[Rfam]
Rfam assigns this 102-nucleotide sequence from Clostridium sp. MD294 to the family "SAM riboswitch aptamer (S box leader)". The organism belongs to Clostridium, within Bacteria. Rfam links the family to the GO term regulation of gene expression.
RNA sequence: AGCUUAUCAAGAGUGGUUGAGGGAAAGGGCCCUGUGAAACCCAGCAACCGGCAUAUUUUUGUAUCGGUGCUAAUUCCCCCGCAGUAUUGCGGAAGAUGAGAU
Numbered sequence: 001a002g003c004u005u006a007u008c009a010a011g012a013g014u015g016g017u018u019g020a021g022g023g024a025a026a027g028g029g030c031c032c033u034g035u036g037a038a039a040c041c042c043a044g045c046a047a048c049c050g051g052c053a054u055a056u057u058u059u060u061g062u063a064u065c066g067g068u069g070c071u072a073a074u075u076c077c078c079c080c081g082c083a084g085u086a087u088u089g090c091g092g093a094a095g096a097u098g099a100g101a102u
Stems, first nucleotide, its partner, number of pairs: 001102001003100006013042001015041003021032003027078003043071004048067002051062003075094001080091004